[Rfam]
RNA: Small nucleolar RNA Z247
Organism: Digitaria exilis
RNA sequence: CCUCUAGAUGAUGAAGAUCUCGUCUCCUACAUCGUGGCAGGCCUCGACAUCGAGUACAACCCCAUCGUCUCUGCGGUACUUGCUCGUGUAGAGCCAAUCACCCUCACUGACCUCUACACACAGCUGCUCUCCUUCGAGC
Numbered sequence: 001c002c003u004c005u006a007g008a009u010g011a012u013g014a015a016g017a018u019c020u021c022g023u024c025u026c027c028u029a030c031a032u033c034g035u036g037g038c039a040g041g042c043c044u045c046g047a048c049a050u051c052g053a054g055u056a057c058a059a060c061c062c063c064a065u066c067g068u069c070u071c072u073g074c075g076g077u078a079c080u081u082g083c084u085c086g087u088g089u090a091g092a093g094c095c096a097a098u099c100a101c102c103c104u105c106a107c108u109g110a111c112c113u114c115u116a117c118a119c120a121c122a123g124c125u126g127c128u129c130u131c132c133u134u135c136g137a138g139c
Base pairs, nucleotide, nucleotide: 004138005137007135008134088108091105092104093103